[Rfam]
RNA sequence: AGAGUUUUAAGAGCGGUUCUUAACUUUUAACUAAAAAUUAAGAACCAGCUCUUAAAUAAGAGUUUUAAGAGCCGGUUCUUAACUUUUUUAGUUAAAAGUUAAGAGACGGGUUCUUAUAUUCU
Numbered sequence: 001a002g003a004g005u006u007u008u009a010a011g012a013g014c015g016g017u018u019c020u021u022a023a024c025u026u027u028u029a030a031c032u033a034a035a036a037a038u039u040a041a042g043a044a045c046c047a048g049c050u051c052u053u054a055a056a057u058a059a060g061a062g063u064u065u066u067a068a069g070a071g072c073c074g075g076u077u078c079u080u081a082a083c084u085u086u087u088u089u090a091g092u093u094a095a096a097a098g099u100u101a102a103g104a105g106a107c108g109g110g111u112u113c114u115u116a117u118a119u120u121c122u
Stems, first nucleotide, its partner, number of pairs: 001122005008116006014108002017105020038082007
RNA: MIR9563 microRNA precursor family
Organism: Brassica carinata